[Rfam]
RNA sequence: AAAGAUGUGAUGAGCCUUUCCCCAUAUGAUCGAAGUUGAUUCUAACUGUGCUAUUCUCAUAAUUUAGUCUCAUAUAUUGAGUAUUGAAUUUCCAAGCCAGAACUCUGAUCUUU
Dot-bracket structure: (((((.......................................................................................................)))))

Rfam assigns this 113-nucleotide sequence from Vigna radiata to the family "Small nucleolar RNA Z103". It scores 65 bits against the family's covariance model. By type it is a C/D-box small nucleolar RNA. Pairs were carried over by alignment from the consensus structure, which was predicted with PFOLD. Rfam 15.1 lists 2,844 matches to the family in 233 species.